[Rfam]
RNA sequence: UUAAAGUGUAAUUGUGUAUUUCUAUGCCCAACAUUUGAUCGUCCAUCUUAUUUGAAUUUUUUCAUGAUUACUAUUUUUAUUGUUAGUAGAUGAUAAAACAUAAAUAAUACUUUAUGUGUGACUUUGUUUUUUAGUUUUCUCACAAAAUUUUCAAAUAAGACGUAUGGUCAAACGUUGGUCACGGAAAUCCGCAAACUGCAUUUAAA
Numbered sequence: 001u002u003a004a005a006g007u008g009u010a011a012u013u014g015u016g017u018a019u020u021u022c023u024a025u026g027c028c029c030a031a032c033a034u035u036u037g038a039u040c041g042u043c044c045a046u047c048u049u050a051u052u053u054g055a056a057u058u059u060u061u062u063c064a065u066g067a068u069u070a071c072u073a074u075u076u077u078u079a080u081u082g083u084u085a086g087u088a089g090a091u092g093a094u095a096a097a098a099c100a101u102a103a104a105u106a107a108u109a110c111u112u113u114a115u116g117u118g119u120g121a122c123u124u125u126g127u128u129u130u131u132u133a134g135u136u137u138u139c140u141c142a143c144a145a146a147a148u149u150u151u152c153a154a155a156u157a158a159g160a161c162g163u164a165u166g167g168u169c170a171a172a173c174g175u176u177g178g179u180c181a182c183g184g185a186a187a188u189c190c191g192c193a194a195a196c197u198g199c200a201u202u203u204a205a206a
Stems, first nucleotide, its partner, number of pairs: 028178005034172009044162001046160006
Dot-bracket structure: ...........................(((((.(((((((((.(.((((((.......................................................................................................)))))).).))))))))).)))))............................

The record is a 206-nucleotide RNA sequence from Oryza glumipatula, which matches "MIR812 microRNA precursor family" in Rfam.
Rfam links the family to the GO terms miRNA-mediated post-transcriptional gene silencing and RISC complex.